[Rfam]
RNA: Glutamine-II riboswitch aptamer
Organism: Synechococcus sp. KORDI-100
RNA sequence: AAACGUUCACUCUGCUACCAGCAGAGCGCAGUUCGAUCGACGCCAUGGAACGGGGACGUCGG
Numbered sequence: 001a002a003a004c005g006u007u008c009a010c011u012c013u014g015c016u017a018c019c020a021g022c023a024g025a026g027c028g029c030a031g032u033u034c035g036a037u038c039g040a041c042g043c044c045a046u047g048g049a050a051c052g053g054g055g056a057c058g059u060c061g062g
Stems, first nucleotide, its partner, number of pairs: 004052005010026005037062006043055002